[Rfam]
RNA sequence: UUCUUUACUUGAGAAACUGAAGGAAAUGGCCCACUGAAGUUUCAGCAACACCUAAUUUUUAGGAAGGAGCUAACUUCAACAUGAUUGCGUGCAAUUAUGAGAGAUAAGAG
Number, nucleotide and partner (000 for none) at each position: 001u110002u109003c108004u107005u106006u000007a000008c103009u000010u000011g000012a000013g043014a042015a041016a040017c039018u000019g000020a000021a000022g031023g030024a000025a000026a000027u078028g077029g076030c023031c022032c000033a000034c000035u000036g000037a000038a000039g017040u016041u015042u014043c013044a071045g070046c069047a000048a000049c067050a000051c063052c062053u061054a060055a000056u000057u000058u000059u000060u054061a053062g052063g051064a000065a000066g000067g049068a000069g046070c045071u044072a000073a000074c000075u102076u029077c028078a027079a000080c099081a098082u097083g096084a095085u094086u000087g000088c000089g000090u000091g000092c000093a000094a085095u084096u083097a082098u081099g080100a000101g000102a075103g008104a000105u000106a005107a004108g003109a002110g001
A member of the RNA family "SAM riboswitch aptamer (S box leader)" from Viridibacillus arenosi, 110 nucleotides long. A search with the family's covariance model found it, with a score of 52 bits. Taxonomically the source falls in Viridibacillus arenosi (Bacteria, Bacillati, Bacilli, Caryophanaceae).